[Rfam]
RNA sequence: AACCUAACCCAAUAUAGUCUUUCAGCUUGAGGUAUGGUUUAAAACCAGAAAAACGUAUUAAAGCCCAUAUAGGCUUUAGCUCAUCGUUUUUCUGGUGCAUGUGGGAAACUGCAUGUGGUAGCCGCAAGGCUAUC
Dot-bracket structure: ((((....((..((.............)).))...)))).....(((((((((((..((((((((......)))))))).....))))))))))).((((((((....))))))))((((((......))))))
A member of the RNA family "LOOT RNA", 134 nucleotides long. It is annotated as a small RNA. The sequence is in the family's curated seed alignment.